[Rfam]
RNA: Small nucleolar RNA SNORA73 family
Organism: Myotis lucifugus
RNA sequence: CCAACGUGGAUAUCCCCGGGAUUUCACUCUCCCCGGGGCUCUGUCCAGGUGGGGAGCAUAGGGCUUUGCCCGGUGAUGUACAGUCCCUUUCCACAAUGUUGGAGAGAAAGCCGGGCCUUGAGUCUGCGCCUGCAUAUUCCUACAGCUUCUCAGAGUCUUGUGGACAAUGACUGAGGAGACAAACCAUGAAGGAAACAUCU
Numbered sequence: 001c002c003a004a005c006g007u008g009g010a011u012a013u014c015c016c017c018g019g020g021a022u023u024u025c026a027c028u029c030u031c032c033c034c035g036g037g038g039c040u041c042u043g044u045c046c047a048g049g050u051g052g053g054g055a056g057c058a059u060a061g062g063g064c065u066u067u068g069c070c071c072g073g074u075g076a077u078g079u080a081c082a083g084u085c086c087c088u089u090u091c092c093a094c095a096a097u098g099u100u101g102g103a104g105a106g107a108a109a110g111c112c113g114g115g116c117c118u119u120g121a122g123u124c125u126g127c128g129c130c131u132g133c134a135u136a137u138u139c140c141u142a143c144a145g146c147u148u149c150u151c152a153g154a155g156u157c158u159u160g161u162g163g164a165c166a167a168u169g170a171c172u173g174a175g176g177a178g179a180c181a182a183a184c185c186a187u188g189a190a191g192g193a194a195a196c197a198u199c200u
Stems, first nucleotide, its partner, number of pairs: 001102007008046005014038003018033004049094003052087004056081001058079003061074001129192003133188003146178006155165004